About this RNA
The record is a 101-nucleotide RNA sequence from Lachnospira eligens, which matches "S10-Clostridia ribosomal protein leader" in Rfam. NCBI's taxonomy places the organism under Bacteria, Bacillati, Lachnospirales, Lachnospiraceae, Lachnospira eligens. It scores 77 bits against the family's covariance model. The base pairs follow the family's consensus structure, which is taken from published work.
RNA sequence: UGAUAGCUGUGAAGCGUGAGGUUGCUGCUUUAAUAAAGCAGGUUUUCCGUGGAGCGAAUGUCAAUGCUGGAGAUAAUCUCCGGCGAAGAAACUGGCGACAA
Numbered sequence: 001u002g003a004u005a006g007c008u009g010u011g012a013a014g015c016g017u018g019a020g021g022u023u024g025c026u027g028c029u030u031u032a033a034u035a036a037a038g039c040a041g042g043u044u045u046u047c048c049g050u051g052g053a054g055c056g057a058a059u060g061u062c063a064a065u066g067c068u069g070g071a072g073a074u075a076a077u078c079u080c081c082g083g084c085g086a087a088g089a090a091a092c093u094g095g096c097g098a099c100a101a
Base pairs, nucleotide, nucleotide: 014050015049016048018047019046020045021044025041026040027039028038029037059100060099061098062097066096067095068094069093